[Rfam]
RNA sequence: UGGGGCGUCGCCAAGUGGUAAGGCACUGGGUUUUGAUCCCAGCAUCCCCAGGUUCGAAUCCUGGCGCCCCAG
Number, nucleotide and partner (000 for none) at each position: 001u071002g070003g069004g068005g067006c066007g065008u000009c000010g024011c023012c022013a000014a000015g000016u000017g000018g000019u000020a000021a000022g012023g011024c010025a000026c042027u041028g040029g039030g038031u000032u000033u000034u000035g000036a000037u000038c030039c029040c028041a027042g026043c000044a000045u000046c000047c000048c064049c063050a062051g061052g060053u000054u000055c000056g000057a000058a000059u000060c052061c051062u050063g049064g048065c007066g006067c005068c004069c003070c002071a001072g000
The record is a 72-nucleotide RNA from Thiospirillum jenense, which matches "tRNA" in Rfam. By type it is a transfer RNA. NCBI's taxonomy places the organism under Bacteria, Pseudomonadati, Gammaproteobacteria, Chromatiaceae, Thiospirillum. The base pairs follow the family's consensus structure, which is taken from published work.